[Rfam]
RNA: Nuclear RNase P
Organism: Ophiocordyceps camponoti-floridani
RNA sequence: CUCUGAGCAACGCCACGCUUCCAUGCUUCCAAACGGAGAAGACGCCCGCGUCAUCUCGUGCAACAUCUUCUCCGGAAGGUCGAGCAACUACGCAUGCGAGAAAUUCGGAGUAAUCUCCAAACCGCAGGUUUGCCUCUUCGGGGGUGUCUCUGCAGGAACCGCAGUCGCUCGCCUGGAUGCGAGAGGACGGGUCUGCCCGUGAGGGCUCGGCGUCAUUUGACGUCUGCAACUUUGGGCAUCAGAAAUGUCAGGGGCCUGAUUCUGGCGAGGGGGGGGGGGGAAGGGAGGGGCGGUUCUUCGGGGCUGUUCCUUUUCUUCUUCACCUCUUUGCUGGGUUGGGUUUCUCUAUGGGAAGCCGUUGCGGAGAUUGUGUGUCGACACUUUAGUGCGAUGCGUGGCGUGGCGGGAGCCAUGAUUCGAUUCCGAUUAUUCUGCUUGGAG
Numbered sequence: 001c002u003c004u005g006a007g008c009a010a011c012g013c014c015a016c017g018c019u020u021c022c023a024u025g026c027u028u029c030c031a032a033a034c035g036g037a038g039a040a041g042a043c044g045c046c047c048g049c050g051u052c053a054u055c056u057c058g059u060g061c062a063a064c065a066u067c068u069u070c071u072c073c074g075g076a077a078g079g080u081c082g083a084g085c086a087a088c089u090a091c092g093c094a095u096g097c098g099a100g101a102a103a104u105u106c107g108g109a110g111u112a113a114u115c116u117c118c119a120a121a122c123c124g125c126a127g128g129u130u131u132g133c134c135u136c137u138u139c140g141g142g143g144g145u146g147u148c149u150c151u152g153c154a155g156g157a158a159c160c161g162c163a164g165u166c167g168c169u170c171g172c173c174u175g176g177a178u179g180c181g182a183g184a185g186g187a188c189g190g191g192u193c194u195g196c197c198c199g200u201g202a203g204g205g206c207u208c209g210g211c212g213u214c215a216u217u218u219g220a221c222g223u224c225u226g227c228a229a230c231u232u233u234g235g236g237c238a239u240c241a242g243a244a245a246u247g248u249c250a251g252g253g254g255c256c257u258g259a260u261u262c263u264g265g266c267g268a269g270g271g272g273g274g275g276g277g278g279g280g281a282a283g284g285g286a287g288g289g290g291c292g293g294u295u296c297u298u299c300g301g302g303g304c305u306g307u308u309c310c311u312u313u314u315c316u317u318c319u320u321c322a323c324c325u326c327u328u329u330g331c332u333g334g335g336u337u338g339g340g341u342u343u344c345u346c347u348a349u350g351g352g353a354a355g356c357c358g359u360u361g362c363g364g365a366g367a368u369u370g371u372g373u374g375u376c377g378a379c380a381c382u383u384u385a386g387u388g389c390g391a392u393g394c395g396u397g398g399c400g401u402g403g404c405g406g407g408a409g410c411c412a413u414g415a416u417u418c419g420a421u422u423c424c425g426a427u428u429a430u431u432c433u434g435c436u437u438g439g440a441g
Stems, first nucleotide, its partner, number of pairs: 001441004007435003012399007022096004036072006106425005115366004195206004209224006232361001234359001235357003251347003400413005